[Rfam]
RNA sequence: UCGGGGAUCAUCAUGUCACGAGAUACCACUGCGCGCUUGUGACAGAUUGAUAACUGAAA
Numbered sequence: 001u002c003g004g005g006g007a008u009c010a011u012c013a014u015g016u017c018a019c020g021a022g023a024u025a026c027c028a029c030u031g032c033g034c035g036c037u038u039g040u041g042a043c044a045g046a047u048u049g050a051u052a053a054c055u056g057a058a059a
Stems, first nucleotide, its partner, number of pairs: 001057004007051004014044009
Shown here is a 59-nucleotide RNA sequence from Tupaia belangeri, a member of the family "mir-542 microRNA precursor family". Rfam's curators put it in the seed alignment. A reference for the family is Sewer et al. (2005), "Identification of clustered microRNAs using an ab initio prediction method", BMC Bioinformatics. Pairs were carried over by alignment from the consensus structure, which was predicted with RNAalifold.